This 106-nucleotide RNA sequence from Treponema denticola belongs to the Rfam family "TD-2 RNA". The match comes from Rfam's covariance-model search (50 bits).

RNA sequence: GCAACACCUGUGAGAAACGGCAAUCAAUAAUGCGAUGUUUUGUGCAAAGCACAAAACUCGUCAGAUAAACAGUGAGGCUGAAUUUCUGCCGAACUGUUUAUCAACU
Numbered sequence: 001g002c003a004a005c006a007c008c009u010g011u012g013a014g015a016a017a018c019g020g021c022a023a024u025c026a027a028u029a030a031u032g033c034g035a036u037g038u039u040u041u042g043u044g045c046a047a048a049g050c051a052c053a054a055a056a057c058u059c060g061u062c063a064g065a066u067a068a069a070c071a072g073u074g075a076g077g078c079u080g081a082a083u084u085u086c087u088g089c090c091g092a093a094c095u096g097u098u099u100a101u102c103a104a105c106u
Stems, first nucleotide, its partner, number of pairs: 001018001005014001033060003037057008064102010076090002
Dot-bracket structure: (...(........)...)..............(((.((((((((.....)))))))))))...((((((((((..((...........))..))))))))))....
The base pairs follow the family's consensus structure, which is taken from published work. The family's RNA type in Rfam is small RNA.